RNA sequence: CCCUUGGAGUGUUAUAUCAAACAGAAGUAGUCUUAGGAUCAAACUGGACACGUUGAACAGGGAA
Numbered sequence: 001c002c003c004u005u006g007g008a009g010u011g012u013u014a015u016a017u018c019a020a021a022c023a024g025a026a027g028u029a030g031u032c033u034u035a036g037g038a039u040c041a042a043a044c045u046g047g048a049c050a051c052g053u054u055g056a057a058c059a060g061g062g063a064a
Stems, first nucleotide, its partner, number of pairs: 001062004009051005022046003030039003
The family of this 64-nucleotide RNA from Oceanirhabdus seepicola is "RAGATH-18 RNA". The family's RNA type in Rfam is small RNA. A search with the family's covariance model found it, with a score of 66 bits. Rfam's curators write: Actinobacteria, Firmicutes, Fusobacteria, Thermotogae (1 example).